The family of this 106-nucleotide sequence from Spongiivirga citrea is "SAM riboswitch aptamer (S box leader)".
The base pairs follow the family's consensus structure, which is taken from published work.
RNA sequence: AUGUUAUCAAGAAAGGCUGAGGGAAUAGACCCUGUGAAGCCUUAGCAACCCUUCAUUCUAAAUGGAGAAGGUGCUAAAUUCUACCGAAGCAUCGGAUAGAUAACCA
Numbered sequence: 001a002u003g004u005u006a007u008c009a010a011g012a013a014a015g016g017c018u019g020a021g022g023g024a025a026u027a028g029a030c031c032c033u034g035u036g037a038a039g040c041c042u043u044a045g046c047a048a049c050c051c052u053u054c055a056u057u058c059u060a061a062a063u064g065g066a067g068a069a070g071g072u073g074c075u076a077a078a079u080u081c082u083a084c085c086g087a088a089g090c091a092u093c094g095g096a097u098a099g100a101u102a103a104c105c106a
Base pairs, nucleotide, nucleotide: 003104004103005102006101007100008099013043014042015041016040017039021032022031023030026083027082028081029080044075045074046073047072049071050070051067052066053065054064079098084095085094086093087092